[Rfam]
RNA: putative aminoglycoside riboswitch / attI site
Organism: Pollutimonas thiosulfatoxidans
RNA sequence: GGAGCAGCAACGAUGUUACGCAGCAGGGCAGUCGCCCUAAAACAAAGUUAGGCAGCACAAAGACCGUUCUCAUG
Numbered sequence: 001g002g003a004g005c006a007g008c009a010a011c012g013a014u015g016u017u018a019c020g021c022a023g024c025a026g027g028g029c030a031g032u033c034g035c036c037c038u039a040a041a042a043c044a045a046a047g048u049u050a051g052g053c054a055g056c057a058c059a060a061a062g063a064c065c066g067u068u069c070u071c072a073u074g
Stems, first nucleotide, its partner, number of pairs: 004071001006017001008015002020056002023053002026037004038050003059068001